[Rfam]
RNA sequence: GCCAGUGUCAUUUUUGUGAUCUGCAGCUAGUAUUCUGGCUUCAGUUGCAUAGUCACAAAAGUGAUCAUUGGC
Numbered sequence: 001g002c003c004a005g006u007g008u009c010a011u012u013u014u015u016g017u018g019a020u021c022u023g024c025a026g027c028u029a030g031u032a033u034u035c036u037g038g039c040u041u042c043a044g045u046u047g048c049a050u051a052g053u054c055a056c057a058a059a060a061g062u063g064a065u066c067a068u069u070g071g072c
Stems, first nucleotide, its partner, number of pairs: 002071006008064013022049007
RNA: mir-153 microRNA precursor family